[Rfam]
RNA sequence: GGCCAGGGGAAUUCCUGGCGGGGUGAUUUUUAAGACUAAACACUGAAUCACAUUGCCAGGGAUUUCCAAUGGCC
Numbered sequence: 001g002g003c004c005a006g007g008g009g010a011a012u013u014c015c016u017g018g019c020g021g022g023g024u025g026a027u028u029u030u031u032a033a034g035a036c037u038a039a040a041c042a043c044u045g046a047a048u049c050a051c052a053u054u055g056c057c058a059g060g061g062a063u064u065u066c067c068a069a070u071g072g073c074c
Stems, first nucleotide, its partner, number of pairs: 001074001003072003009067001011063011023051007
RNA: mir-23 microRNA precursor family